[Rfam]
RNA: mir-17 microRNA precursor family
Organism: Denticeps clupeoides
Nucleotides: 079
Base pairs, nucleotide, nucleotide: 004076005075006074007073009071010070013066014065015064016063017062018061019060020059022057023056025054026053027052029051030050031049032048033047
Number, partner (000 for none) and nucleotide at each position: 001000a002000u003000u004076g005075u006074a007073g008000u009071g010070u011000c012000a013066a014065a015064g016063u017062g018061c019060u020059u021000a022057c023056a024000g025054u026053g027052c028000a029051g030050g031049u032048a033047g034000u035000u036000c037000c038000g039000u040000g041000u042000u043000a044000u045000g046000u047033c048032u049031a050030c051029u052027g053026c054025a055000g056023u057022g058000g059020a060019g061018g062017c063016a064015c065014u066013u067000c068000a069000a070010g071009c072000a073007c074006u075005a076004c077000u078000u079000u